[Rfam]
RNA sequence: AAAAGAAAAAACCUGCAGAAAAUAUACUUCUGCAGGUCCCUUUGUUUUUACUAAGAAAAACAAAUAGGCAAAGGGAGAGGAGAAACCGGAGGAAGAACUUAUGGGGAAGUUUAAGUCUUCUCCGUGU
Numbered sequence: 001a002a003a004a005g006a007a008a009a010a011a012c013c014u015g016c017a018g019a020a021a022a023u024a025u026a027c028u029u030c031u032g033c034a035g036g037u038c039c040c041u042u043u044g045u046u047u048u049u050a051c052u053a054a055g056a057a058a059a060a061c062a063a064a065u066a067g068g069c070a071a072a073g074g075g076a077g078a079g080g081a082g083a084a085a086c087c088g089g090a091g092g093a094a095g096a097a098c099u100u101a102u103g104g105g106g107a108a109g110u111u112u113a114a115g116u117c118u119u120c121u122c123c124g125u126g127u
Stems, first nucleotide, its partner, number of pairs: 011037009038075005044061006087124004092120004097116005
Annotation:
The family of this 127-nucleotide sequence from Compostibacillus humi is "ylbH leader". For this family Rfam cites "New RNA motifs suggest an expanded scope for riboswitches in bacterial genetic control" (Barrick et al., Proc Natl Acad Sci U S A, 2004). It scores 98 bits against the family's covariance model. This family is a putative regulatory RNA structure that is found upstream of the ylbH gene in B. subtilis and related low GC Gram-positive bacteria. The base pairs follow the family's consensus structure.